Rfam assigns this 583-nucleotide part of an RNA from Chlorella variabilis to the family "Eukaryotic large subunit ribosomal RNA".
The base pairs follow the family's consensus structure, which is taken from published work.
[Rfam]
RNA sequence: UUGUGAAAUGACUUAGGAGGUGUAGAAUAAGUGGGAGCUUCGGCGCCGGUGAAAUACCACUACUCUUAAACGAUGGUGGAAGGCCGUGACCGCCUGCGCAAAGGGGGUGAUGAGUCUAUAGAUUUAAGGGCUUGGUGCGGAGAGAAACGGUGAAGCCCAAUGUGACAAGUCAUCUCCGAAAAAGCAGAGCGGCACGCUUCCAUCUGAUUGAGAGUAAAAGUCGACUUAGAUUAAAUUAGAAUUUGAUUCUGAUUUAAUUUAAUCGGCUAGUCCAUCCAACCGAUUCCAGUGCAAGUGGUUGGGGGCAAGACGACCUGGAACGAGGAACGCCCCGGGGCAGUUUGUCCUAUGGUGAAUCUCGUGGCGAGCUUCUUGUAAAAAGAGAGCCGUCGUAACGCACGCAAAGGCGUCGGUCGAGUGCUUAUGUGCUCGGCUUAAGGAACGUGCUAGUCCCGCCCGAUAAGAAAGGGCGUCCCGAUGUCAAGCGCUUGCACCGCAAACCAUUCGGGGGGGUGAAGGCCAAGGAGGAAAUGCCCUGGCCAUGGGUUACCAGCACCCGGUAUCUCGAACGUUAUUUUACUUA
Numbered sequence: 001u002u003g004u005g006a007a008a009u010g011a012c013u014u015a016g017g018a019g020g021u022g023u024a025g026a027a028u029a030a031g032u033g034g035g036a037g038c039u040u041c042g043g044c045g046c047c048g049g050u051g052a053a054a055u056a057c058c059a060c061u062a063c064u065c066u067u068a069a070a071c072g073a074u075g076g077u078g079g080a081a082g083g084c085c086g087u088g089a090c091c092g093c094c095u096g097c098g099c100a101a102a103g104g105g106g107g108u109g110a111u112g113a114g115u116c117u118a119u120a121g122a123u124u125u126a127a128g129g130g131c132u133u134g135g136u137g138c139g140g141a142g143a144g145a146a147a148c149g150g151u152g153a154a155g156c157c158c159a160a161u162g163u164g165a166c167a168a169g170u171c172a173u174c175u176c177c178g179a180a181a182a183a184g185c186a187g188a189g190c191g192g193c194a195c196g197c198u199u200c201c202a203u204c205u206g207a208u209u210g211a212g213a214g215u216a217a218a219a220g221u222c223g224a225c226u227u228a229g230a231u232u233a234a235a236u237u238a239g240a241a242u243u244u245g246a247u248u249c250u251g252a253u254u255u256a257a258u259u260u261a262a263u264c265g266g267c268u269a270g271u272c273c274a275u276c277c278a279a280c281c282g283a284u285u286c287c288a289g290u291g292c293a294a295g296u297g298g299u300u301g302g303g304g305g306c307a308a309g310a311c312g313a314c315c316u317g318g319a320a321c322g323a324g325g326a327a328c329g330c331c332c333c334g335g336g337g338c339a340g341u342u343u344g345u346c347c348u349a350u351g352g353u354g355a356a357u358c359u360c361g362u363g364g365c366g367a368g369c370u371u372c373u374u375g376u377a378a379a380a381a382g383a384g385a386g387c388c389g390u391c392g393u394a395a396c397g398c399a400c401g402c403a404a405a406g407g408c409g410u411c412g413g414u415c416g417a418g419u420g421c422u423u424a425u426g427u428g429c430u431c432g433g434c435u436u437a438a439g440g441a442a443c444g445u446g447c448u449a450g451u452c453c454c455g456c457c458c459g460a461u462a463a464g465a466a467a468g469g470g471c472g473u474c475c476c477g478a479u480g481u482c483a484a485g486c487g488c489u490u491g492c493a494c495c496g497c498a499a500a501c502c503a504u505u506c507g508g509g510g511g512g513g514u515g516a517a518g519g520c521c522a523a524g525g526a527g528g529a530a531a532u533g534c535c536c537u538g539g540c541c542a543u544g545g546g547u548u549a550c551c552a553g554c555a556c557c558c559g560g561u562a563u564c565u566c567g568a569a570c571g572u573u574a575u576u577u578u579a580c581u582u583a
Stems, first nucleotide, its partner, number of pairs: 003580010013569002016566002019563001030561001032559003
The organism belongs to Chlorella, within Eukaryota.
It scores 2899 bits against the family's covariance model.